[Rfam]
RNA: Small nucleolar RNA SNORA70
RNA sequence: AUAAACAAAAGAACACCAAUUGUGCUCCUUUCCUCCUGGGGGACCAGUGUGCAAUGGCUGCAAAUAGCUGUUUCCUUGGUAACAUAUGCAGCCUGUUGCUUGUAUGGGUUGCACUAAGAAACCUUAAAAACAGCC
Number, nucleotide and partner (000 for none) at each position: 001a000002u053003a000004a000005a050006c000007a000008a000009a000010a000011g000012a000013a000014c000015a000016c000017c000018a000019a048020u047021u046022g045023u000024g000025c042026u041027c040028c039029u000030u000031u000032c000033c000034u000035c000036c000037u000038g000039g028040g027041g026042g025043a000044c000045c022046a021047g020048u019049g000050u005051g000052c000053a002054a000055u000056g000057g000058c000059u000060g000061c000062a000063a000064a000065u000066a000067g000068c000069u000070g000071u000072u000073u000074c000075c000076u000077u000078g123079g122080u121081a000082a000083c000084a000085u000086a000087u000088g000089c111090a110091g109092c108093c107094u106095g000096u000097u000098g000099c000100u000101u000102g000103u000104a000105u000106g094107g093108g092109u091110u090111g089112c000113a000114c000115u000116a000117a000118g000119a000120a000121a080122c079123c078124u000125u000126a000127a000128a000129a000130a000131c000132a000133g000134c000135c000